[Rfam]
Rfam assigns this 114-nucleotide RNA from Strongyloides ratti to the family "Potassium channel RNA editing signal". Gene Ontology term of the family: adenosine to inosine editing. The source organism's lineage runs through Eukaryota, Metazoa, Chromadorea, Strongyloididae and Strongyloides. It is annotated as a cis-regulatory element.
RNA sequence: UUAGGUUAUGGUGAUAUGGUUCCAGGAACAGUAAUGGGUAAAAUAGUUGGUGGAAUAUGUUCACUUUCUGGUGUAUUGGUAAUUGCUUUACCAGUUCCUGUUAUAGUAUCAAAU
Numbered sequence: 001u002u003a004g005g006u007u008a009u010g011g012u013g014a015u016a017u018g019g020u021u022c023c024a025g026g027a028a029c030a031g032u033a034a035u036g037g038g039u040a041a042a043a044u045a046g047u048u049g050g051u052g053g054a055a056u057a058u059g060u061u062c063a064c065u066u067u068c069u070g071g072u073g074u075a076u077u078g079g080u081a082a083u084u085g086c087u088u089u090a091c092c093a094g095u096u097c098c099u100g101u102u103a104u105a106g107u108a109u110c111a112a113a114u
Stems, first nucleotide, its partner, number of pairs: 002113001005110001007108003011104001013102004018097002021094001037077004050062001